Background
The record is a 112-nucleotide RNA from Mesorhizobium wenxiniae, which matches "TPP riboswitch aptamer (THI element)" in Rfam. Rfam describes the family as follows. Vitamin B(1) in its active form thiamin pyrophosphate (TPP) is an essential coenzyme that is synthesised by coupling of pyrimidine and thiazole moieties in bacteria. The previously detected thiamin-regulatory element, thi box was extended, resulting in a new, highly conserved RNA secondary structure, the THI element, which is widely distributed in eubacteria and also occurs in some archaea. The match comes from Rfam's covariance-model search (60 bits). Taxonomically the source falls in Mesorhizobium (Bacteria, Pseudomonadota, Alphaproteobacteria, Phyllobacteriaceae).
RNA sequence: CCAUAUCGACAGGGGCGCUCCGUAUUGCCGGGGCUGAGAUGGAAGGUGCAAGCCUUCGGUCCCUCAAGCUGAUCUGGGUAAUGCCAGCGGAGCGAGGCGACUAUGUUUUCAG
Numbered sequence: 001c002c003a004u005a006u007c008g009a010c011a012g013g014g015g016c017g018c019u020c021c022g023u024a025u026u027g028c029c030g031g032g033g034c035u036g037a038g039a040u041g042g043a044a045g046g047u048g049c050a051a052g053c054c055u056u057c058g059g060u061c062c063c064u065c066a067a068g069c070u071g072a073u074c075u076g077g078g079u080a081a082u083g084c085c086a087g088c089g090g091a092g093c094g095a096g097g098c099g100a101c102u103a104u105g106u107u108u109u110c111a112g
Stems, first nucleotide, its partner, number of pairs: 006100003010096001011064004016058001017034005041057003045053001068093003074087004